[Rfam]
Nucleotides: 086
Stems, first nucleotide, its partner, number of pairs: 001084006009076003013072002017068003021064001025059004032053002035050002
Number, partner (000 for none) and nucleotide at each position: 001084u002083u003082g004081a005080a006079g007000g008000a009076u010075u011074u012000g013072a014071a015000u016000a017068c018067u019066u020000c021064a022000a023000c024000u025059u026058g027057c028056a029000a030000g031000c032053u033052u034000a035050a036049a037000a038000a039000a040000u041000u042000u043000g044000a045000a046000g047000a048000c049036u050035u051000g052033a053032a054000c055000u056028u057027g058026c059025a060000g061000g062000c063000u064021u065000a066019a067018a068017g069000a070000a071014u072013u073000g074011g075010a076009a077000g078000a079006c080005u081004u082003c083002a084001a085000c086000u